c-di-GMP-I riboswitch aptamer: an 89-nucleotide RNA sequence from Metabacillus lacus. NCBI's taxonomy places the organism under Bacteria, Bacillati, Caryophanales, Bacillaceae, Metabacillus. The base pairs follow the family's consensus structure, which is taken from published work. Rfam 15.1 lists 5,092 matches to the family in 1,772 species.
RNA sequence: AACUGAAAAAGGCAAACCUGCUGAAAGGCAGGGACGCAAAGCCAUGGGUCUAAACGGGUGCAUUCCCGCAUGAUUGCCAGGUUGCCAGA
Numbered sequence: 001a002a003c004u005g006a007a008a009a010a011g012g013c014a015a016a017c018c019u020g021c022u023g024a025a026a027g028g029c030a031g032g033g034a035c036g037c038a039a040a041g042c043c044a045u046g047g048g049u050c051u052a053a054a055c056g057g058g059u060g061c062a063u064u065c066c067c068g069c070a071u072g073a074u075u076g077c078c079a080g081g082u083u084g085c086c087a088g089a
Base pairs, nucleotide, nucleotide: 012037013036017032018031019030020029021028022027040083041082042081043080045079046078047077048074049073050072055068056067057066058065